[Rfam]
RNA sequence: UGAAGUCUGUUGCUUUGACGAUGUUGCACUACUGAAGCACCCAUUCAAGCAGUGCAAUAGUAUUGUCAUUGCAUUCGACUUUUGC
Numbered sequence: 001u002g003a004a005g006u007c008u009g010u011u012g013c014u015u016u017g018a019c020g021a022u023g024u025u026g027c028a029c030u031a032c033u034g035a036a037g038c039a040c041c042c043a044u045u046c047a048a049g050c051a052g053u054g055c056a057a058u059a060g061u062a063u064u065g066u067c068a069u070u071g072c073a074u075u076c077g078a079c080u081u082u083u084g085c
Stems, first nucleotide, its partner, number of pairs: 002082003007077001009075001011073003016068004023058008034042001
Shown here is an 85-nucleotide sequence from Chanos chanos, a member of the family "mir-301 microRNA precursor family". On this family, see Houbaviy et al., Dev Cell 2003: "Embryonic stem cell-specific MicroRNAs". NCBI's taxonomy places the organism under Eukaryota, Metazoa, Actinopteri, Clupeocephala, Chanos. Its family is annotated with miRNA-mediated post-transcriptional gene silencing and RISC complex in the Gene Ontology. The base pairs follow the family's consensus structure, which was predicted with WAR.